[Rfam]
RNA sequence: ACGUUCGGGUAAUCGCUAUGCCUCUCUUUUGAGGUGUAGAGGAAAGUCCAUGCUCGCACGGUUCUGAGAUGACCGUAGUGAUCGCGCCUGGCCAAAAAAUAAGCCAGGGCAGUCUGGUUUCGACUGGGCUGACGGCAGGGAAAUCACCUAAGUCCAUACGGAUAUGGUGAUACGACCUUGAAAGUGCCACAGUGACGUAGUCCUUCCGGAAACGGCAGGAGUGGAACGAGGUAAACCCCGCGAGCGAGAAACCCAAAUUAUGGUAGGGGAGUUUCUCACGAAGGAAAUGAACUUUGUGAGAGAGCGUCCAGCAGCAUGCUGGAUGGAGAUAGAUGAUUACCACCGGUGUACGAGGCUGAUUGCCGUCUGCAGUACUAAGGUACAGAACAUGGCUUACAGAA
Numbered sequence: 001a002c003g004u005u006c007g008g009g010u011a012a013u014c015g016c017u018a019u020g021c022c023u024c025u026c027u028u029u030u031g032a033g034g035u036g037u038a039g040a041g042g043a044a045a046g047u048c049c050a051u052g053c054u055c056g057c058a059c060g061g062u063u064c065u066g067a068g069a070u071g072a073c074c075g076u077a078g079u080g081a082u083c084g085c086g087c088c089u090g091g092c093c094a095a096a097a098a099a100u101a102a103g104c105c106a107g108g109g110c111a112g113u114c115u116g117g118u119u120u121c122g123a124c125u126g127g128g129c130u131g132a133c134g135g136c137a138g139g140g141a142a143a144u145c146a147c148c149u150a151a152g153u154c155c156a157u158a159c160g161g162a163u164a165u166g167g168u169g170a171u172a173c174g175a176c177c178u179u180g181a182a183a184g185u186g187c188c189a190c191a192g193u194g195a196c197g198u199a200g201u202c203c204u205u206c207c208g209g210a211a212a213c214g215g216c217a218g219g220a221g222u223g224g225a226a227c228g229a230g231g232u233a234a235a236c237c238c239c240g241c242g243a244g245c246g247a248g249a250a251a252c253c254c255a256a257a258u259u260a261u262g263g264u265a266g267g268g269g270a271g272u273u274u275c276u277c278a279c280g281a282a283g284g285a286a287a288u289g290a291a292c293u294u295u296g297u298g299a300g301a302g303a304g305c306g307u308c309c310a311g312c313a314g315c316a317u318g319c320u321g322g323a324u325g326g327a328g329a330u331a332g333a334u335g336a337u338u339a340c341c342a343c344c345g346g347u348g349u350a351c352g353a354g355g356c357u358g359a360u361u362g363c364c365g366u367c368u369g370c371a372g373u374a375c376u377a378a379g380g381u382a383c384a385g386a387a388c389a390u391g392g393c394u395u396a397c398a399g400a401a
Stems, first nucleotide, its partner, number of pairs: 004401003007397001008341007016039008044395003048392005053248005058076004063072002082243005087108006109133001110131009134238002137178003145169004152163003184236002186232003201220004206215003252268003272303007305325009343380002348375004
Background: A member of the RNA family "Bacterial RNase P class B" from Fictibacillus aquaticus, 401 nucleotides long. The match comes from Rfam's covariance-model search (308 bits). Taxonomically the source falls in Fictibacillus (Bacteria, Bacillati, Bacillota, Caryophanales).